[Rfam]
RNA sequence: UAUUAUUGAGGUGAGAAAUGGCUCCUCAUACGCUGAAUUAAUCAGUAAAUAGAGGCGUAGGACGCUGUCCUGCCAAUAAGA
Numbered sequence: 001u002a003u004u005a006u007u008g009a010g011g012u013g014a015g016a017a018a019u020g021g022c023u024c025c026u027c028a029u030a031c032g033c034u035g036a037a038u039u040a041a042u043c044a045g046u047a048a049a050u051a052g053a054g055g056c057g058u059a060g061g062a063c064g065c066u067g068u069c070c071u072g073c074c075a076a077u078a079a080g081a
Stems, first nucleotide, its partner, number of pairs: 001081001003079006011029005019067004031052001032046004057073005
Annotation
The record is an 81-nucleotide RNA sequence from Clostridium gasigenes, which matches "skipping-rope RNA" in Rfam. The match comes from Rfam's covariance-model search (47 bits). Lineage of the source: Bacteria > Bacillati > Bacillota > Clostridia > Clostridium. The family's consensus secondary structure is taken from published work.